[Rfam]
RNA: 6S / SsrS RNA
RNA sequence: GAGCUUCUGCGGUGUUCGUUACGGUCAGCUUAAUUGGAGAACCGAUGAAGUUUAUAUAGGGAAGCUCGUUAGCCCUGCGGGGAGGAAAUGCCUGAAAAACCAGGACUUUCAAACUGCUUGGCCGGCUGCCCACGUUGAUUGCAAGGGUUCUUGCAAUCGCUUUCCGAACGGCACCCGCGGAGGUUAG
Dot-bracket structure: .((((((((((((((.(((..............(((.((((((...............(((.((((.(.(...(..((((.....((...((((......))))..)).....))))..))).)))).)))..............))))))..)))...........))))))).))))))))))..